The family of this 321-nucleotide sequence from Nannospalax galili is "7SK RNA". Its Rfam clan is "7SK clan". The organism belongs to Nannospalax, within Eukaryota. The match comes from Rfam's covariance-model search (266 bits). 7SK was discovered as an abundant small nuclear RNA in the mid-70s but a possible function has only recently been suggested. Two independent studies have found that 7SK RNA binds the CDK9/cyclin T complex (known as elongation factor P-TEFb). P-TEFb activates transcription by phosphorylating the C-terminal domain of RNA polymerase II. This process is negatively regulated by the 7SK RNP. The secondary structure of 7SK RNA shown here was proposed by Wasserman and Steitz on the basis of chemical modification and enzymatic cleavage experiments.

RNA sequence: GGAUGUGAGGGCGAUCUGGCUGUGACAUCUGUCACCCCAUUGAUCGCCAGUGUUGAUUCAGCUGAUCUGGCUGGCUAGGCGGGUGCCCCCUUCCUCCCUCAAUGGUCCACGUGCAUCCCUCCCGAAGCUGUGUGCUCGGUUGAAGAGGAUGACCUUCCCCAAUAGAGGAGGACCAGUCUUCGGUCAAGGGUAUACGAAUAGCUGCACUCCCCUGCUAGAACCUCCAAACAAGCUCUCAAGAAAUUAUGUAGGAGUCACGUGGGUUGGCACACUCCUUUAAUCCCAACACUCUGGAGGCAGAGGUAGGCAGGUCUCUGUGAG
Numbered sequence: 001g002g003a004u005g006u007g008a009g010g011g012c013g014a015u016c017u018g019g020c021u022g023u024g025a026c027a028u029c030u031g032u033c034a035c036c037c038c039a040u041u042g043a044u045c046g047c048c049a050g051u052g053u054u055g056a057u058u059c060a061g062c063u064g065a066u067c068u069g070g071c072u073g074g075c076u077a078g079g080c081g082g083g084u085g086c087c088c089c090c091u092u093c094c095u096c097c098c099u100c101a102a103u104g105g106u107c108c109a110c111g112u113g114c115a116u117c118c119c120u121c122c123c124g125a126a127g128c129u130g131u132g133u134g135c136u137c138g139g140u141u142g143a144a145g146a147g148g149a150u151g152a153c154c155u156u157c158c159c160c161a162a163u164a165g166a167g168g169a170g171g172a173c174c175a176g177u178c179u180u181c182g183g184u185c186a187a188g189g190g191u192a193u194a195c196g197a198a199u200a201g202c203u204g205c206a207c208u209c210c211c212c213u214g215c216u217a218g219a220a221c222c223u224c225c226a227a228a229c230a231a232g233c234u235c236u237c238a239a240g241a242a243a244u245u246a247u248g249u250a251g252g253a254g255u256c257a258c259g260u261g262g263g264u265u266g267g268c269a270c271a272c273u274c275c276u277u278u279a280a281u282c283c284c285a286a287c288a289c290u291c292u293g294g295a296g297g298c299a300g301a302g303g304u305a306g307g308c309a310g311g312u313c314u315c316u317g318u319g320a321g
Stems, first nucleotide, its partner, number of pairs: 001108003006101006013093002018090002024087001026085008035074002037070003042067004046062002116171002118168004122139004127135002140162003147158003201268003211263005222254004228249003232245001289321003293316006